[Rfam]
RNA sequence: CCCACCGAAGUAGAUCGCAGUCUUGUCUCGAUGGAGGUUGCUUGUAUUGUAGAGCACCGAUCGGACGGUAAGGGCUCGAAAGGGCUCGCCGCCCAUUCGAACUCCGAAUGUACGGGCGCCGUAGAAGUCGGGAAGCGGGUUUAUGUGGGGUAAGCCUCAUAACCGAAAGGGGGACAACCCAGACUAAAGUUAAGGUCCCCAAAUGUCUGCUAAGUGUCAAACAAAAAGGUGUUUUCGAGCAAAGACAGCAGGGAGGUAGGCUCAGAAGCAGCCAUCCUUCAAAGAGUGCGUAACAGCUCACCUGCCGAGCUCGGAAGCCCUGAAAAUGGACGGGGCUAAAGCAGACUACCGAUACUUUAGGCCGCCGGCGAGGCCGGCGCGCGGUAGGUGGGCGUAGUGUUUGGGUCGAAGCUGGGCUGUGAAGUCCAGUGGACCGAACUAACUAUUGCAGAU
Dot-bracket structure: ((((((.....((((....))))..(((((((...(((.((((((((....(((....((..((.(((...((((((....)))))).))).))..))...)).)....)))))))))))......)))))).)...((.(((((.((.......)))))))))....(((......)))...(((((((...(((......(.((((((................(((.((((((((((.......(((((.(((..(((.........)))..)))(...)(...((......)).).)))))...)))))))))))))...................))))))))))...)))))))(((((((.......))))).))....))))))(.((((((((((......((((((((....))))))))...))))))..))))..).....